The family of this 114-nucleotide sequence from Nitratireductor basaltis is "Alphaproteobacterial ar15". The source organism's lineage runs through Bacteria, Pseudomonadati, Pseudomonadota, Alphaproteobacteria and Nitratireductor. Rfam 15.1 lists 316 matches to the family in 177 species. The family is grouped with related families in Rfam's "suhB sRNA clan". Pairs were carried over by alignment from the consensus structure. The literature on the family includes a 2012 paper in RNA Biol by del Val et al., "A survey of sRNA families in alpha-proteobacteria".
Nucleotides: 114
Stems, first nucleotide, its partner, number of pairs: 002039003006035001009031001011029002050076007086108009
Number, partner (000 for none) and nucleotide at each position: 001000a002039c003038u004037c005000c006035c007000g008000g009031g010000c011029g012028c013000g014000u015000u016000c017000u018000c019000c020000u021000c022000c023000c024000a025000u026000u027000u028012g029011c030000a031009c032000c033000c034000g035006g036000u037004g038003a039002g040000u041000g042000u043000u044000c045000c046000c047000c048000u049000c050076u051075g052074g053073a054072g055071g056070u057000u058000u059000a060000g061000c062000c063000u064000a065000a066000c067000g068000g069000c070056a071055c072054u073053u074052c075051c076050a077000a078000c079000a080000a081000c082000u083000c084000u085000u086108a087107g088106c089105c090104g091103g092102g093101u094100c095000c096000g097000c098000g099000a100094g101093a102092u103091c104090c105089g106088g107087c108086u109000u110000u111000u112000u113000u114000u